[Rfam]
RNA sequence: AAGUGCUUACAGCUCUUUUUGAAUUUCUCUAGGUCUUCUGGUUUGUACCAGAAAAA
Dot-bracket structure: .................................(.(((((((....)))))))..)